Shown here is a 102-nucleotide RNA sequence from Glaciihabitans sp. INWT7, a member of the family "mraW RNA". Rfam classes the family as a cis-regulatory element. It scores 60 bits against the family's covariance model. The family has 45 seed sequences and 851 matches in Rfam 15.1.
[Rfam]
RNA sequence: CUAGCGCCCUUGUUCCUGACUCCCAGCCGUCGACUCGCCCUGACAUCACUUCCCCGGUGACAGGUCGGACGGAUGGGGAUCAGGAACAAGGAACAGAAGACA
Numbered sequence: 001c002u003a004g005c006g007c008c009c010u011u012g013u014u015c016c017u018g019a020c021u022c023c024c025a026g027c028c029g030u031c032g033a034c035u036c037g038c039c040c041u042g043a044c045a046u047c048a049c050u051u052c053c054c055c056g057g058u059g060a061c062a063g064g065u066c067g068g069a070c071g072g073a074u075g076g077g078g079a080u081c082a083g084g085a086a087c088a089a090g091g092a093a094c095a096g097a098a099g100a101c102a
Stems, first nucleotide, its partner, number of pairs: 010089007018081002021078005027072004035068003039064004044059003